[Rfam]
RNA: Yersinia sRNA 276
Organism: Providencia heimbachae
Nucleotides: 195
Stems, first nucleotide, its partner, number of pairs: 005189002012032003016028005033043001035041001050059002062077003079134003083130005092122001095119003100111002136163003140159002143156002167186005
Number, partner (000 for none) and nucleotide at each position: 001000a002000a003000u004000g005189g006188a007000c008000a009000u010000c011000a012032a013031g014030g015000a016028u017027u018026c019025a020024u021000u022000u023000u024020g025019u026018g027017a028016a029000c030014c031013u032012u033043g034000a035041c036000c037000a038000a039000c040000g041035g042000c043033c044000a045000a046000g047000u048000a049000a050059g051058c052000a053000u054000u055000c056000a057000u058051g059050c060000c061000c062077a063076g064075c065000u066000c067000u068000u069000u070000c071000a072000u073000u074000u075064g076063c077062u078000c079134u080133u081132c082000a083130c084129c085128g086127a087126u088000a089000a090000c091000a092122c093000g094000a095119g096118u097117g098000g099000u100111g101110a102000g103000c104000u105000u106000g107000c108000u109000g110101u111100c112000u113000g114000a115000a116000a117097u118096a119095u120000c121000a122092g123000c124000a125000a126087g127086u128085u129084g130083g131000c132081g133080a134079g135000c136163u137162u138161g139000u140159g141158a142000c143156g144155c145000u146000a147000a148000a149000u150000a151000a152000c153000c154000u155144g156143c157000a158141u159140u160000a161138c162137a163136g164000a165000u166000a167186u168185u169184u170183g171182g172000c173000g174000g175000c176000a177000u178000a179000u180000u181000a182171c183170c184169g185168a186167g187000a188006u189005c190000u191000u192000u193000u194000g195000c